[Rfam]
RNA sequence: UCUGGGCAGCGUAGCGGCUGCCUGUGACCCGAGCGGGAGUAGGAGAGACGGAAGCUGGGGCUCUUGCAGAGGACCGCCGGGAUCAUGUUGAAGGCACGUCCGCUUGAAGCGUGGAGUCUCUGGUCCGGGCUCCUCCGCGGAAGCGAGAGGAGUCUGGGGAGAUGAUGUGGAAGGCACAGCGUGAGGCGGGCGACCGAGCAGCGAACACUUCCCGCUCUGCGCAGUCCAGGGACAGCGUGCUUGAAUGCUUGCCAGCGAUCAUCCGAAGUGAGCAGCCAUCAGCGACCUCUCUC
Numbered sequence: 001u002c003u004g005g006g007c008a009g010c011g012u013a014g015c016g017g018c019u020g021c022c023u024g025u026g027a028c029c030c031g032a033g034c035g036g037g038a039g040u041a042g043g044a045g046a047g048a049c050g051g052a053a054g055c056u057g058g059g060g061c062u063c064u065u066g067c068a069g070a071g072g073a074c075c076g077c078c079g080g081g082a083u084c085a086u087g088u089u090g091a092a093g094g095c096a097c098g099u100c101c102g103c104u105u106g107a108a109g110c111g112u113g114g115a116g117u118c119u120c121u122g123g124u125c126c127g128g129g130c131u132c133c134u135c136c137g138c139g140g141a142a143g144c145g146a147g148a149g150g151a152g153u154c155u156g157g158g159g160a161g162a163u164g165a166u167g168u169g170g171a172a173g174g175c176a177c178a179g180c181g182u183g184a185g186g187c188g189g190g191c192g193a194c195c196g197a198g199c200a201g202c203g204a205a206c207a208c209u210u211c212c213c214g215c216u217c218u219g220c221g222c223a224g225u226c227c228a229g230g231g232a233c234a235g236c237g238u239g240c241u242u243g244a245a246u247g248c249u250u251g252c253c254a255g256c257g258a259u260c261a262u263c264c265g266a267a268g269u270g271a272g273c274a275g276c277c278a279u280c281a282g283c284g285a286c287c288u289c290u291c292u293c
Stems, first nucleotide, its partner, number of pairs: 002039002004023007028037003043293006050287002054283005059277004064272001067270002071264003075257003079253002086244001092242008100231002103229002106226002109222009118161003124158012136145003169212005180203003187196003
RNA: Plant signal recognition particle RNA